RtT RNA: a 130-nucleotide RNA sequence from Kineobactrum salinum. About the family: This family represents a bacterial cis-regulatory element known as RtT RNA. The exact function of RtT is unknown although it is thought that it may be involved in changing the cellular response in relation to amino acid starvation. The base pairs follow the family's consensus structure, which is taken from published work. It scores 56 bits against the family's covariance model. The family's RNA type in Rfam is cis-regulatory element.
RNA sequence: UACAGAAGUUGGCAGGGUGGGUUCGAACCACACGGUUCGACCAGGGUGGCGCAGCCACCCGGAGCGCCGCUGAAAAGCGGCGACCCGAAGGGUGAGGGCCGCAGGCCCGAAUAAUCCACCCCCUCCACCA
Numbered sequence: 001u002a003c004a005g006a007a008g009u010u011g012g013c014a015g016g017g018u019g020g021g022u023u024c025g026a027a028c029c030a031c032a033c034g035g036u037u038c039g040a041c042c043a044g045g046g047u048g049g050c051g052c053a054g055c056c057a058c059c060c061g062g063a064g065c066g067c068c069g070c071u072g073a074a075a076a077g078c079g080g081c082g083a084c085c086c087g088a089a090g091g092g093u094g095a096g097g098g099c100c101g102c103a104g105g106c107c108c109g110a111a112u113a114a115u116c117c118a119c120c121c122c123c124u125c126c127a128c129c130a
Stems, first nucleotide, its partner, number of pairs: 015121008031094002036089004044055001065082006